[Rfam]
RNA sequence: ACUCUCUCAGCUCUGCACGGUCACACUUGAUACCACGCGUGUGGCUUUCGUAAUCGGGAGAGAAAGGAAGGACCUCCUCGGGACCUCCAAGUGGCCUCACAGUGGCCACCCUUUCCUCGAGGGGUGCCACAGAU
Numbered sequence: 001a002c003u004c005u006c007u008c009a010g011c012u013c014u015g016c017a018c019g020g021u022c023a024c025a026c027u028u029g030a031u032a033c034c035a036c037g038c039g040u041g042u043g044g045c046u047u048u049c050g051u052a053a054u055c056g057g058g059a060g061a062g063a064a065a066g067g068a069a070g071g072a073c074c075u076c077c078u079c080g081g082g083a084c085c086u087c088c089a090a091g092u093g094g095c096c097u098c099a100c101a102g103u104g105g106c107c108a109c110c111c112u113u114u115c116c117u118c119g120a121g122g123g124g125u126g127c128c129a130c131a132g133a134u
Stems, first nucleotide, its partner, number of pairs: 002066002005063004011058003015054001019046008074124005080118003089112001091110001092108005
RNA: Small nucleolar RNA SNORA64/SNORA10 family